[Rfam]
RNA: mir-927 microRNA precursor family
Organism: Tribolium castaneum
RNA sequence: AGAGCCACGUUUCGGUUUAGAAUUCCUACGCUUUACCGUGUGAAAGGCUGGCAAAGCGUUUGGAUUCUGAAUCGAACCUUUG
Numbered sequence: 001a002g003a004g005c006c007a008c009g010u011u012u013c014g015g016u017u018u019a020g021a022a023u024u025c026c027u028a029c030g031c032u033u034u035a036c037c038g039u040g041u042g043a044a045a046g047g048c049u050g051g052c053a054a055a056g057c058g059u060u061u062g063g064a065u066u067c068u069g070a071a072u073c074g075a076a077c078c079u080u081u082g
Base pairs, nucleotide, nucleotide: 010076011075012074014073015072016071017070018069019068020067021066023064024063025062028059029058030057031056032055033054034053036051037050